[Rfam]
RNA sequence: AUUCUGUUUCAGGGCGAGGUGCAAUUCCUCACUGGCGGUAAUCUGGCCCUCCUGCGCGAGGCGCCAAGAGUCCGCGACCCGCCUGCCGGCGUUUCGAGGCACGCGGCUGACUGUGGUGCGAUCCCACGACCAACGGUACAGUCCGGAUGGAAGAGGCAGCGA
Numbered sequence: 001a002u003u004c005u006g007u008u009u010c011a012g013g014g015c016g017a018g019g020u021g022c023a024a025u026u027c028c029u030c031a032c033u034g035g036c037g038g039u040a041a042u043c044u045g046g047c048c049c050u051c052c053u054g055c056g057c058g059a060g061g062c063g064c065c066a067a068g069a070g071u072c073c074g075c076g077a078c079c080c081g082c083c084u085g086c087c088g089g090c091g092u093u094u095c096g097a098g099g100c101a102c103g104c105g106g107c108u109g110a111c112u113g114u115g116g117u118g119c120g121a122u123c124c125c126a127c128g129a130c131c132a133a134c135g136g137u138a139c140a141g142u143c144c145g146g147a148u149g150g151a152a153g154a155g156g157c158a159g160c161g162a
Base pairs, nucleotide, nucleotide: 004159005158006157007156008155009154010153017029018028019027031142032141033132034131035075036074037073038072070130071129079106080105081104082103112128113127114126115125116124134145135144136143
This 162-nucleotide RNA sequence from Eggerthellaceae bacterium zg-893 belongs to the Rfam family "FMN riboswitch aptamer (RFN element)". Rfam describes the family as follows. The RFN element is a highly conserved domain that is found frequently in the 5'-untranslated regions of prokaryotic mRNAs that encode for flavin mononucleotide (FMN) biosynthesis and transport proteins.